Rfam assigns this 74-nucleotide RNA sequence from Candidatus Cenarchaeum symbiosum to the family "tRNA".
RNA sequence: GGGCCCGUAACUCAGCCUGGUAGAGUAACCGACUCAUAAUCGGUGAGCCGUGAGAUCAAAGCUCGCCGGGCCCA
Numbered sequence: 001g002g003g004c005c006c007g008u009a010a011c012u013c014a015g016c017c018u019g020g021u022a023g024a025g026u027a028a029c030c031g032a033c034u035c036a037u038a039a040u041c042g043g044u045g046a047g048c049c050g051u052g053a054g055a056u057c058a059a060a061g062c063u064c065g066c067c068g069g070g071c072c073c074a
Base pairs, nucleotide, nucleotide: 001073002072003071004070005069006068007067010026011025012024013023028044029043030042031041032040050066051065052064053063054062
The base pairs follow the family's consensus structure, which is taken from published work.